[Rfam]
RNA sequence: UCCUCUUGAAAGACAUGGGUAGUGAGAUGUAAGCUGACAACCACAUCUCACUACCUUGUCUUUCAGGUAGAG
Numbered sequence: 001u002c003c004u005c006u007u008g009a010a011a012g013a014c015a016u017g018g019g020u021a022g023u024g025a026g027a028u029g030u031a032a033g034c035u036g037a038c039a040a041c042c043a044c045a046u047c048u049c050a051c052u053a054c055c056u057u058g059u060c061u062u063u064c065a066g067g068u069a070g071a072g
Stems, first nucleotide, its partner, number of pairs: 008064008017056003021052009
The family of this 72-nucleotide RNA from Hyalella azteca is "mir-71 microRNA precursor family". Lineage of the source: Eukaryota > Panarthropoda > Senticaudata > Talitroidea > Hyalella. The literature on the family includes a 2009 paper in BMC Genomics by Li et al., "Direct sequencing and expression analysis of a large number of miRNAs in Aedes aegypti and a multi-species survey of novel mosquito miRNAs". Its family is annotated with RISC complex and miRNA-mediated post-transcriptional gene silencing in the Gene Ontology.